[Rfam]
RNA sequence: GUAAAUACAGUGAUGAGGAAUAGUAAGCUGCCAGAGAUAGACAGAGAGCCGCCGGUUGGUGCAAGACGGUUAUGGAUGUCAGCUGAACUCGCCUUGGAGUAGCUUGCUGAAGAAGGCAUAAGCCUUUGUGUAGGUAAAGACGGAAGCCGGCCGUUACAGCGGAUGGAUAUGGAAGUAUCCGAUAAGUGUAUGCUUUUUAGGAAGCAUAAAGCAGAGUGGUACCGCGCAAGUUUGUCCUGCGUCUCUUGC
Numbered sequence: 001g002u003a004a005a006u007a008c009a010g011u012g013a014u015g016a017g018g019a020a021u022a023g024u025a026a027g028c029u030g031c032c033a034g035a036g037a038u039a040g041a042c043a044g045a046g047a048g049c050c051g052c053c054g055g056u057u058g059g060u061g062c063a064a065g066a067c068g069g070u071u072a073u074g075g076a077u078g079u080c081a082g083c084u085g086a087a088c089u090c091g092c093c094u095u096g097g098a099g100u101a102g103c104u105u106g107c108u109g110a111a112g113a114a115g116g117c118a119u120a121a122g123c124c125u126u127u128g129u130g131u132a133g134g135u136a137a138a139g140a141c142g143g144a145a146g147c148c149g150g151c152c153g154u155u156a157c158a159g160c161g162g163a164u165g166g167a168u169a170u171g172g173a174a175g176u177a178u179c180c181g182a183u184a185a186g187u188g189u190a191u192g193c194u195u196u197u198u199a200g201g202a203a204g205c206a207u208a209a210a211g212c213a214g215a216g217u218g219g220u221a222c223c224g225c226g227c228a229a230g231u232u233u234g235u236c237c238u239g240c241g242u243c244u245c246u247u248g249c
Stems, first nucleotide, its partner, number of pairs: 007100002015095004026084005037073003048070004053065001103139002105136004141153003189208007213246004224242005
RNA: T-box leader
Organism: Clostridium sp. chh4-2